[Rfam]
RNA sequence: UGGCACCCAACAUGGGGCUCCUGGCAUGGGGGAGUCAACGAGGGAGCCGUUCGAGAACAUCGGUUAAAAGGGAAAGCAAAUUGAAUCAAAGACCAAAGCCUGCGCGGAUGAUCACUCGACGUGCUGCCUGAGUCACGGUGAGUGUAUGACAACCCCAUCCCCUUUCCCCGACAUGGGUCAAGCAUUGAGCGAACAGCAAUUGUUCGUGGGAAGCCUUAGCAAGGCAUUAAAGACAAGAGGUACAAGGAUUAAAACAAAAGAAUUGUUGCAGUAUUUUCAGUUUAUCCAUAAGGUUUGCCCUC
Numbered sequence: 001u002g003g004c005a006c007c008c009a010a011c012a013u014g015g016g017g018c019u020c021c022u023g024g025c026a027u028g029g030g031g032g033a034g035u036c037a038a039c040g041a042g043g044g045a046g047c048c049g050u051u052c053g054a055g056a057a058c059a060u061c062g063g064u065u066a067a068a069a070g071g072g073a074a075a076g077c078a079a080a081u082u083g084a085a086u087c088a089a090a091g092a093c094c095a096a097a098g099c100c101u102g103c104g105c106g107g108a109u110g111a112u113c114a115c116u117c118g119a120c121g122u123g124c125u126g127c128c129u130g131a132g133u134c135a136c137g138g139u140g141a142g143u144g145u146a147u148g149a150c151a152a153c154c155c156c157a158u159c160c161c162c163u164u165u166c167c168c169c170g171a172c173a174u175g176g177g178u179c180a181a182g183c184a185u186u187g188a189g190c191g192a193a194c195a196g197c198a199a200u201u202g203u204u205c206g207u208g209g210g211a212a213g214c215c216u217u218a219g220c221a222a223g224g225c226a227u228u229a230a231a232g233a234c235a236a237g238a239g240g241u242a243c244a245a246g247g248a249u250u251a252a253a254a255c256a257a258a259a260g261a262a263u264u265g266u267u268g269c270a271g272u273a274u275u276u277u278c279a280g281u282u283u284a285u286c287c288a289u290a291a292g293g294u295u296u297g298c299c300c301u302c
Stems, first nucleotide, its partner, number of pairs: 006032003012027003037051004082118003086114001092109001093107002125180002127177004186229003189225002237277007246264002249261002290301001292299002

The record is a 302-nucleotide sequence from Cavia porcellus, which matches "Mason-Pfizer monkey virus packaging signal" in Rfam. The family's consensus secondary structure was predicted with PFOLD. Rfam classes the family as a cis-regulatory element. The match comes from Rfam's covariance-model search (63 bits). Lineage of the source: Eukaryota > Chordata > Tetrapoda > Caviidae > Cavia.